[Rfam]
RNA sequence: AAACCAAACUUGCUGAAUCCCAGCUUUGCUGGGUACGGAGGAACCAAUCAGAGGGGUUAAUCCAAGUAAACUUGGUAGGAAACCUUCUUUCCCGAGCCCGUCAGCUAACUUCGGAAGCAUAAUAGAAGGAGUGA
Numbered sequence: 001a002a003a004c005c006a007a008a009c010u011u012g013c014u015g016a017a018u019c020c021c022a023g024c025u026u027u028g029c030u031g032g033g034u035a036c037g038g039a040g041g042a043a044c045c046a047a048u049c050a051g052a053g054g055g056g057u058u059a060a061u062c063c064a065a066g067u068a069a070a071c072u073u074g075g076u077a078g079g080a081a082a083c084c085u086u087c088u089u090u091c092c093c094g095a096g097c098c099c100g101u102c103a104g105c106u107a108a109c110u111u112c113g114g115a116a117g118c119a120u121a122a123u124a125g126a127a128g129g130a131g132u133g134a
Stems, first nucleotide, its partner, number of pairs: 011119004019033004036113005045053001054099003062075004078093002081090001
The record is a 134-nucleotide RNA sequence from Lutispora thermophila, which matches "c-di-AMP riboswitch aptamer (ydaO/yuaA leader)" in Rfam. It scores 91 bits against the family's covariance model. Taxonomically the source falls in Lutispora thermophila (Bacteria, Bacillota, Lutisporales, Lutisporaceae).